This 109-nucleotide sequence from Caenorhabditis nigoni belongs to the Rfam family "MIR480 microRNA precursor family".
[Rfam]
RNA sequence: UAAUGCGUCCGACAGAACUUUUUUUAUAAUCAAGAAACCACACGAAAUUGCACAAAAUCGCAUUUUUGCGUUGUUUUUCGAUUAUAAAAAAAGUUCUGUCGGACGCAUU
Numbered sequence: 001u002a003a004u005g006c007g008u009c010c011g012a013c014a015g016a017a018c019u020u021u022u023u024u025u026a027u028a029a030u031c032a033a034g035a036a037a038c039c040a041c042a043c044g045a046a047a048u049u050g051c052a053c054a055a056a057a058u059c060g061c062a063u064u065u066u067u068g069c070g071u072u073g074u075u076u077u078u079c080g081a082u083u084a085u086a087a088a089a090a091a092a093g094u095u096c097u098g099u100c101g102g103a104c105g106c107a108u109u
Stems, first nucleotide, its partner, number of pairs: 004107006012099001014097002018093002023089003027084005

On this family, see Lu et al., Plant Cell 2005: "Novel and mechanical stress-responsive MicroRNAs in Populus trichocarpa that are absent from Arabidopsis".